[Rfam]
RNA: MIR1024 microRNA precursor family
Organism: Physcomitrium patens
RNA sequence: GUCGACGCCCUGCAAUUCAAGCAGACUCGAUUACAAUGUUUGCCGCCGACGUCACGCAUGUCACGUGGUUAUUUGUACUUCAGUCUGGUUGGAUUGUAGGCCUCCGCAA
Numbered sequence: 001g002u003c004g005a006c007g008c009c010c011u012g013c014a015a016u017u018c019a020a021g022c023a024g025a026c027u028c029g030a031u032u033a034c035a036a037u038g039u040u041u042g043c044c045g046c047c048g049a050c051g052u053c054a055c056g057c058a059u060g061u062c063a064c065g066u067g068g069u070u071a072u073u074u075g076u077a078c079u080u081c082a083g084u085c086u087g088g089u090u091g092g093a094u095u096g097u098a099g100g101c102c103u104c105c106g107c108a109a
Base pairs, nucleotide, nucleotide: 001107002106004104005103007101008100009099011098012097013096014095015094016093017092018091019090020089022087023086024085025084026083027082029081030080045076046075048073049072051069052068053067054066055065056064